Shown here is a 146-nucleotide RNA sequence from Podarcis lilfordi, a member of the family "Small nucleolar RNA SNORA79". A search with the family's covariance model found it, with a score of 116 bits. Rfam links the family to the GO terms nucleolus and RNA processing. About the family: ACA65 (SNORA79) is a member of the H/ACA class of snoRNAs that guide the sites of modification of uridines to pseudouridines. This snoRNA was identified by computational screening and its expression in mouse experimentally verified by Northern blot and primer extension analysis. NCBI's taxonomy places the organism under Eukaryota, Bilateria, Dipnotetrapodomorpha, Lepidosauria, Podarcis.

RNA sequence: UGAUGACUGUUCCUCUUGCUGUCGCAAGCCGUAGACGGUGAGAUUUUGUGUCAUCAAAUAUUAAAGCUGGCCUUUCUUCACUCAAUGUGCCUUUGGAUGGGUUGGCUGUCUGUUGGCACUAUUGAAUUUUGCGGGGCCAGACAUUC
Number, nucleotide and partner (000 for none) at each position: 001u056002g055003a054004u053005g052006a051007c050008u000009g000010u000011u000012c000013c000014u043015c042016u041017u040018g039019c000020u037021g036022u035023c034024g000025c000026a000027a000028g000029c000030c000031g000032u000033a000034g023035a022036c021037g020038g000039u018040g017041a016042g015043a014044u000045u000046u000047u000048g000049u000050g007051u006052c005053a004054u003055c002056a001057a000058a000059u000060a000061u000062u000063a000064a000065a000066g000067c000068u000069g138070g137071c136072c135073u134074u133075u000076c000077u000078u000079c000080a000081c000082u125083c124084a123085a122086u121087g119088u118089g117090c116091c115092u000093u000094u000095g111096g110097a109098u108099g107100g000101g000102u000103u000104g000105g000106c000107u099108g098109u097110c096111u095112g000113u000114u000115g091116g090117c089118a088119c087120u000121a086122u085123u084124g083125a082126a000127u000128u000129u000130u000131g000132c000133g074134g073135g072136g071137c070138c069139a000140g000141a000142c000143a000144u000145u000146c000